[Rfam]
RNA sequence: UUGCGCAAGUGAUGUUGAUUUGAGCAAUUUUCGCAAACCUCUGCCGGUGUGUGUGACGUAAGCUUUCUUUCAGUUUCACGGCCCGGACGAGGAGUCCACCCGACCCACCCAAUCAGGUGCGUCGGCGCCGGCGGUCCCACCGGGCCGCGUCAGGCACCCGGGUCCGUACCGCCCAAUCAGGCGGACGACGAAAGCGGCGACACGAUUGCCAGCACCGGACGAAUACCCGAAGGGGGGUCAGCGAUGACCCCCC
Numbered sequence: 001u002u003g004c005g006c007a008a009g010u011g012a013u014g015u016u017g018a019u020u021u022g023a024g025c026a027a028u029u030u031u032c033g034c035a036a037a038c039c040u041c042u043g044c045c046g047g048u049g050u051g052u053g054u055g056a057c058g059u060a061a062g063c064u065u066u067c068u069u070u071c072a073g074u075u076u077c078a079c080g081g082c083c084c085g086g087a088c089g090a091g092g093a094g095u096c097c098a099c100c101c102g103a104c105c106c107a108c109c110c111a112a113u114c115a116g117g118u119g120c121g122u123c124g125g126c127g128c129c130g131g132c133g134g135u136c137c138c139a140c141c142g143g144g145c146c147g148c149g150u151c152a153g154g155c156a157c158c159c160g161g162g163u164c165c166g167u168a169c170c171g172c173c174c175a176a177u178c179a180g181g182c183g184g185a186c187g188a189c190g191a192a193a194g195c196g197g198c199g200a201c202a203c204g205a206u207u208g209c210c211a212g213c214a215c216c217g218g219a220c221g222a223a224u225a226c227c228c229g230a231a232g233g234g235g236g237g238u239c240a241g242c243g244a245u246g247a248c249c250c251c252c253c
Stems, first nucleotide, its partner, number of pairs: 001012004043057001045055002076193001079190002081163004085097004100125005107118003127155003130151001133146005165187003169184005194213002196210005232253004237248004
RNA: Pseudomonas sRNA P24